[Rfam]
RNA sequence: CGGGAGUGCAUUGUAGUUGCAUUGCACUUUAUUAUUUCUGUGCAAUAUUACUACAAAGCAGUUCUCG
Numbered sequence: 001c002g003g004g005a006g007u008g009c010a011u012u013g014u015a016g017u018u019g020c021a022u023u024g025c026a027c028u029u030u031a032u033u034a035u036u037u038c039u040g041u042g043c044a045a046u047a048u049u050a051c052u053a054c055a056a057a058g059c060a061g062u063u064c065u066c067g
Stems, first nucleotide, its partner, number of pairs: 001067004006063001007060003011056006019048001021046007
This 67-nucleotide RNA from Leptidea sinapis belongs to the Rfam family "mir-33 microRNA precursor family". The literature on the family includes a 2009 paper in BMC Genomics by Li et al., "Direct sequencing and expression analysis of a large number of miRNAs in Aedes aegypti and a multi-species survey of novel mosquito miRNAs". The family has 73 seed sequences and 1,467 matches in Rfam 15.1. The organism belongs to Leptidea, within Eukaryota.